Shown here is a 182-nucleotide RNA from Gouania willdenowi, a member of the family "Small nucleolar RNA SNORA23".
It is annotated as an H/ACA-box small nucleolar RNA.
Rfam describes the family as follows. The members of this family belong to the H/ACA class of snoRNAs which are thought to guide the sites of modification of uridines to pseudouridines. This family includes human snoRNA ACA23 (SNORA23) and mouse snoMBI-1. ACA23 is predicted to guide the pseudouridylation of residue U3737 and U4331 of 28S rRNA.
The source organism's lineage runs through Eukaryota, Eumetazoa, Euteleosteomorpha, Neoteleostei and Gouania.
On this family, see Huttenhofer et al., EMBO J 2001: "RNomics: an experimental approach that identifies 201 candidates for novel, small, non-messenger RNAs in mouse".
[Rfam]
RNA sequence: GGUAGACGGUGUGCACGGUGUCAGUCCGUGUUCAGUGUUGUUGCUGGCCUGUGUUUUUCAGGUUGUGCAGCAGCGCUCACUCCAUUAUCUGCAGCCAUAGAACAACAGGAGAUCAUAGUACUGGCCCUUGAAGUCUUUGUUGACAGCUCACCAUUGGCCAGCCUCCAAACUCUCCAACAUGU
Numbered sequence: 001g002g003u004a005g006a007c008g009g010u011g012u013g014c015a016c017g018g019u020g021u022c023a024g025u026c027c028g029u030g031u032u033c034a035g036u037g038u039u040g041u042u043g044c045u046g047g048c049c050u051g052u053g054u055u056u057u058u059c060a061g062g063u064u065g066u067g068c069a070g071c072a073g074c075g076c077u078c079a080c081u082c083c084a085u086u087a088u089c090u091g092c093a094g095c096c097a098u099a100g101a102a103c104a105a106c107a108g109g110a111g112a113u114c115a116u117a118g119u120a121c122u123g124g125c126c127c128u129u130g131a132a133g134u135c136u137u138u139g140u141u142g143a144c145a146g147c148u149c150a151c152c153a154u155u156g157g158c159c160a161g162c163c164u165c166c167a168a169a170c171u172c173u174c175c176a177a178c179a180u181g182u
Stems, first nucleotide, its partner, number of pairs: 013092003030082001035077001036075006043068002045065003050060002108175005121161006129153002134145001136143002